[Rfam]
RNA: Y RNA
Organism: Propithecus coquereli
RNA sequence: AGCUGGCCCAAGUGCAGUGGUGUUUACAGCUAAUUGAUCACAACUGGUUACAGAUUCCUUUGUUCCUUUUCCACUUACACUGCUUCACUUGACUAGUAAAAU
Numbered sequence: 001a002g003c004u005g006g007c008c009c010a011a012g013u014g015c016a017g018u019g020g021u022g023u024u025u026a027c028a029g030c031u032a033a034u035u036g037a038u039c040a041c042a043a044c045u046g047g048u049u050a051c052a053g054a055u056u057c058c059u060u061u062g063u064u065c066c067u068u069u070u071c072c073a074c075u076u077a078c079a080c081u082g083c084u085u086c087a088c089u090u091g092a093c094u095a096g097u098a099a100a101a102u
Stems, first nucleotide, its partner, number of pairs: 002097005008091001010090002014086001016081004028064003032060002